[Rfam]
RNA sequence: UAAUAGCCCUGAUUGAAGAGGAAAUCCUUAAUGUUAAAAAUAAUUUUAGCAUUAAGAUUGCAACAUAAAGCAGGAAUAAGA
Numbered sequence: 001u002a003a004u005a006g007c008c009c010u011g012a013u014u015g016a017a018g019a020g021g022a023a024a025u026c027c028u029u030a031a032u033g034u035u036a037a038a039a040a041u042a043a044u045u046u047u048a049g050c051a052u053u054a055a056g057a058u059u060g061c062a063a064c065a066u067a068a069a070g071c072a073g074g075a076a077u078a079a080g081a
Base pairs, nucleotide, nucleotide: 009073010072011071013069014068018064023059024058025057026056029054030053031052032051033050034049035048036047037046038045

This 81-nucleotide RNA from Flavobacterium sp. 316 belongs to the Rfam family "Flavo-1 RNA". It scores 65 bits against the family's covariance model. The source organism's lineage runs through Bacteria, Pseudomonadati, Flavobacteriia, Flavobacteriaceae and Flavobacterium. Rfam classes the family as a small RNA.